[Rfam]
RNA sequence: UGACGGGGACCCGCACAAGCGGUGGAGUAUGUGGUUUAAUUCGAUGCAACGCGAAGAACCUUACCAAGGCUUGACAUCCUGCGAAUCUUGGAGAAAUCUGAGAGUGCCUAAGGGAACGCAGAGACAGGUGGUGCAUGGCUGUCGUCAGCUCGUGUCGUGAGAUGUUGGGUUAAGUCCCGCAACGAGCGCAACCCUCGUCCUUAGUUGCCAGCAUUAAGUUGGGGACUCUAGGGAGACCGCCGGGGAGAACUCGGAGGAAGGUGGGGAUGACGUCAAGUCAGCAUGCCCCUUACGUCUUGGGCUACACACGUACUACAAUGGUUGGGACAAAGGGGAGCGAAACCGCGAGGUGGAGCGAAUCUCAUCAAACCCAGCCACAGUUCAGAUUGCAGGCUGAAACUCGCCUGCAUGAAGGAGGAAUCGCUAGUAAUCGCAGGUCAGCAUACUGCGGUGAAUCCGUUCCCGGGUCUUGUACACACCGCCCGUCACACCAUGGAAGUUGGUCACGCCCGAAGUCGUUAUUCUAACCCAAGUGGAAGGAGACGCCGAAGGUGGGACUAGUGACUGGGGUGAAGUCGUAACAAGG
Numbered sequence: 001u002g003a004c005g006g007g008g009a010c011c012c013g014c015a016c017a018a019g020c021g022g023u024g025g026a027g028u029a030u031g032u033g034g035u036u037u038a039a040u041u042c043g044a045u046g047c048a049a050c051g052c053g054a055a056g057a058a059c060c061u062u063a064c065c066a067a068g069g070c071u072u073g074a075c076a077u078c079c080u081g082c083g084a085a086u087c088u089u090g091g092a093g094a095a096a097u098c099u100g101a102g103a104g105u106g107c108c109u110a111a112g113g114g115a116a117c118g119c120a121g122a123g124a125c126a127g128g129u130g131g132u133g134c135a136u137g138g139c140u141g142u143c144g145u146c147a148g149c150u151c152g153u154g155u156c157g158u159g160a161g162a163u164g165u166u167g168g169g170u171u172a173a174g175u176c177c178c179g180c181a182a183c184g185a186g187c188g189c190a191a192c193c194c195u196c197g198u199c200c201u202u203a204g205u206u207g208c209c210a211g212c213a214u215u216a217a218g219u220u221g222g223g224g225a226c227u228c229u230a231g232g233g234a235g236a237c238c239g240c241c242g243g244g245g246a247g248a249a250c251u252c253g254g255a256g257g258a259a260g261g262u263g264g265g266g267a268u269g270a271c272g273u274c275a276a277g278u279c280a281g282c283a284u285g286c287c288c289c290u291u292a293c294g295u296c297u298u299g300g301g302c303u304a305c306a307c308a309c310g311u312a313c314u315a316c317a318a319u320g321g322u323u324g325g326g327a328c329a330a331a332g333g334g335g336a337g338c339g340a341a342a343c344c345g346c347g348a349g350g351u352g353g354a355g356c357g358a359a360u361c362u363c364a365u366c367a368a369a370c371c372c373a374g375c376c377a378c379a380g381u382u383c384a385g386a387u388u389g390c391a392g393g394c395u396g397a398a399a400c401u402c403g404c405c406u407g408c409a410u411g412a413a414g415g416a417g418g419a420a421u422c423g424c425u426a427g428u429a430a431u432c433g434c435a436g437g438u439c440a441g442c443a444u445a446c447u448g449c450g451g452u453g454a455a456u457c458c459g460u461u462c463c464c465g466g467g468u469c470u471u472g473u474a475c476a477c478a479c480c481g482c483c484c485g486u487c488a489c490a491c492c493a494u495g496g497a498a499g500u501u502g503g504u505c506a507c508g509c510c511c512g513a514a515g516u517c518g519u520u521a522u523u524c525u526a527a528c529c530c531a532a533g534u535g536g537a538a539g540g541a542g543a544c545g546c547c548g549a550a551g552g553u554g555g556g557a558c559u560a561g562u563g564a565c566u567g568g569g570g571u572g573a574a575g576u577c578g579u580a581a582c583a584a585g586g
Base pairs, nucleotide, nucleotide: 001476002475003473004472005471007470008469009468010467011466012465013464015460016459019424020423021422022421023420024316026314027313028312029311030310031309032308033307034305035304040055041054042053043052064300065299066298067297068296069295070294077124078123079121080120081119082118083117086103087102088101089100090099091098092097105116107114108113127289128288130287131286132285133284136283137282138278139277140276141274143272144271148187149186150185151184152183153182154163155162156161166179167178168177169176193266194265195264196263198234199233200232201231202230203229204228208223209222212221213220237257238256240254241253242252243251244250320376321375322374323373324372325371326370332363333362334361337356338355342351343350344349383414388409389408390407391406392405393404394403430452431451432450433449434448435447436446479585481582484578485577489572490571491570492569494567495566496565499562500561501560502559503558504557505556507554508553509552510551515547517545518544519543520542522541523540524539525538528536529535
Bacterial small subunit ribosomal RNA: a 586-nucleotide part of an RNA from Cyanobacterium aponinum. The match comes from Rfam's covariance-model search (1533 bits). Rfam links the family to the GO terms structural constituent of ribosome and ribosome. The source organism's lineage runs through Bacteria, Bacillati, Cyanobacteriota, Cyanophyceae and Cyanobacterium aponinum.